[Rfam]
This 87-nucleotide RNA sequence from Bagarius yarrelli belongs to the Rfam family "mir-135 microRNA precursor family". A reference for the family is Lagos-Quintana et al. (2002), "Identification of tissue-specific microRNAs from mouse", Curr Biol. Rfam links the family to the GO terms RISC complex and gene silencing by miRNA. It scores 81 bits against the family's covariance model.
RNA sequence: UCACUUCUGUGUUUUAUGGCUUUUUAUUCCUAUGUGAUUCUUUUAAUAAUGUCAUGUAGGGUUCAAAGCCAUUAGAUACAGAGUGGC
Numbered sequence: 001u002c003a004c005u006u007c008u009g010u011g012u013u014u015u016a017u018g019g020c021u022u023u024u025u026a027u028u029c030c031u032a033u034g035u036g037a038u039u040c041u042u043u044u045a046a047u048a049a050u051g052u053c054a055u056g057u058a059g060g061g062u063u064c065a066a067a068g069c070c071a072u073u074a075g076a077u078a079c080a081g082a083g084u085g086g087c
Stems, first nucleotide, its partner, number of pairs: 002086001005083010016072008026063001028061010